[Rfam]
RNA sequence: GCAGGGUGCGGGGCUAGGGCUAACAGCAGUCUUACUGAAGGUUUCCUGGAAACCACGCACAUGCUGUUGCCACUAACCUC
Numbered sequence: 001g002c003a004g005g006g007u008g009c010g011g012g013g014c015u016a017g018g019g020c021u022a023a024c025a026g027c028a029g030u031c032u033u034a035c036u037g038a039a040g041g042u043u044u045c046c047u048g049g050a051a052a053c054c055a056c057g058c059a060c061a062u063g064c065u066g067u068u069g070c071c072a073c074u075a076a077c078c079u080c
Base pairs, nucleotide, nucleotide: 010080011079012078013077015075016074017073018071019070020069022068023067024066025065026064027063028062040054041053042052043051044050045049
A member of the RNA family "mir-744 microRNA precursor family" from Sus scrofa, 80 nucleotides long. The literature on the family includes a 2006 paper in Nucleic Acids Res by Takada et al., "Mouse microRNA profiles determined with a new and sensitive cloning method". It is one of the family's seed sequences. Its family is annotated with RISC complex and miRNA-mediated post-transcriptional gene silencing in the Gene Ontology.